RNA sequence: UAUCUGAUUGAUUCUGUCAGCGCUAUAUGCUCAAGUAAAAGAUUAAGCCAUGCAUGUAUAAAGUUCAUCAUUUUGAGAAACUGCGAACGGCUCAUUAGAGCAGAUGUUAUUUAUUUCGUAUUUUUCGAGGAUAACUGCGGUAAUUCUGGAGCUAAUACAUGCAUAUUAACCCUAACUUUUGGAAGGGUGCAGAUAUUAGUACAAAUCAAUCGUUUCUGACGUUGUUUGUUGACUCUGAAUAUCGUAGCUUUUCGACGGUUUUAUCGUCGAUAGUCGAAAAAUGUGUCUGCCCUAUCAACCAGAUGGUAGUCUAUUAGCCUACCAUGGUUAUCACGGGUAACGGAGAAUCAGGGUUCGACUCCGGAGAGGGAGCCUUAGAAACGGCUACCACAUCCAAGGAAGGCAGCAGGCGCGUAACUUAUCCACUACUUCAGUGAGAUAGUAACUAAAAAUAAAAAAGCCAAUCCUAUGGAUCGGUUAUUUCAAUGAGCUGAGCUUAAAUAGCUCUACGAGGACCCAGUGGAGGGCAAGUCUGGUGCCAGCAGCCGCGGUAAUUCCAGCUCCACUAGUGUAAAGCGUUAUUGCUG
Dot-bracket structure: ...(((((.......))))).(((.((((((....((..((.....(((.(((..((....(((...((.....))...)))))......(((......((((..((...(....(((.......((.(.....((.(((.....))).))......).)).......(((((..(....)..)))))....(((((.......(.((....(.(...).).....)).).......))))).........(((((((.....)))))))....)))...).))..))))(((....(((..(((((((.........))))))))))......)))...((((((((....))))...))))))).((.(((..........))).)).(.((....)).)...)))))).).....(.(((...(((....))).)))).)...)).......(((((((.((((...)))).)))).)))......(...(((.......)))...).........((((((.......((((.....((....)).......)))))))))).)))))).)))..........
Numbered sequence: 001u002a003u004c005u006g007a008u009u010g011a012u013u014c015u016g017u018c019a020g021c022g023c024u025a026u027a028u029g030c031u032c033a034a035g036u037a038a039a040a041g042a043u044u045a046a047g048c049c050a051u052g053c054a055u056g057u058a059u060a061a062a063g064u065u066c067a068u069c070a071u072u073u074u075g076a077g078a079a080a081c082u083g084c085g086a087a088c089g090g091c092u093c094a095u096u097a098g099a100g101c102a103g104a105u106g107u108u109a110u111u112u113a114u115u116u117c118g119u120a121u122u123u124u125u126c127g128a129g130g131a132u133a134a135c136u137g138c139g140g141u142a143a144u145u146c147u148g149g150a151g152c153u154a155a156u157a158c159a160u161g162c163a164u165a166u167u168a169a170c171c172c173u174a175a176c177u178u179u180u181g182g183a184a185g186g187g188u189g190c191a192g193a194u195a196u197u198a199g200u201a202c203a204a205a206u207c208a209a210u211c212g213u214u215u216c217u218g219a220c221g222u223u224g225u226u227u228g229u230u231g232a233c234u235c236u237g238a239a240u241a242u243c244g245u246a247g248c249u250u251u252u253c254g255a256c257g258g259u260u261u262u263a264u265c266g267u268c269g270a271u272a273g274u275c276g277a278a279a280a281a282u283g284u285g286u287c288u289g290c291c292c293u294a295u296c297a298a299c300c301a302g303a304u305g306g307u308a309g310u311c312u313a314u315u316a317g318c319c320u321a322c323c324a325u326g327g328u329u330a331u332c333a334c335g336g337g338u339a340a341c342g343g344a345g346a347a348u349c350a351g352g353g354u355u356c357g358a359c360u361c362c363g364g365a366g367a368g369g370g371a372g373c374c375u376u377a378g379a380a381a382c383g384g385c386u387a388c389c390a391c392a393u394c395c396a397a398g399g400a401a402g403g404c405a406g407c408a409g410g411c412g413c414g415u416a417a418c419u420u421a422u423c424c425a426c427u428a429c430u431u432c433a434g435u436g437a438g439a440u441a442g443u444a445a446c447u448a449a450a451a452a453u454a455a456a457a458a459a460g461c462c463a464a465u466c467c468u469a470u471g472g473a474u475c476g477g478u479u480a481u482u483u484c485a486a487u488g489a490g491c492u493g494a495g496c497u498u499a500a501a502u503a504g505c506u507c508u509a510c511g512a513g514g515a516c517c518c519a520g521u522g523g524a525g526g527g528c529a530a531g532u533c534u535g536g537u538g539c540c541a542g543c544a545g546c547c548g549c550g551g552u553a554a555u556u557c558c559a560g561c562u563c564c565a566c567u568a569g570u571g572u573a574a575a576g577c578g579u580u581a582u583u584g585c586u587g
Stems, first nucleotide, its partner, number of pairs: 004020005022577003026573006036448002040443001041413001047411003051408003056084002062082003068076002091366003100290004106284002111281001116277003126161002129158001135151002138148003169188005176181001193242005205230001207228002213221001215219001252270007291337003298328003303325007341363004345356004368389002371386003391402001393400002419441001421440003427436003456483003459479004464474004490510001494506003520566006533560004542549002
The family of this 587-nucleotide part of an RNA from Auanema sp. JU1783 is "Eukaryotic small subunit ribosomal RNA". Taxonomically the source falls in Auanema (Eukaryota, Rhabditida, Rhabditina, Rhabditoidea). Its Rfam clan is "SSU clan". Pairs were carried over by alignment from the consensus structure, which is taken from published work. Its family is annotated with ribosome and structural constituent of ribosome in the Gene Ontology. For this family Rfam cites "Crystal structure of the ribosome at 5.5 A resolution" (Yusupov et al., Science, 2001).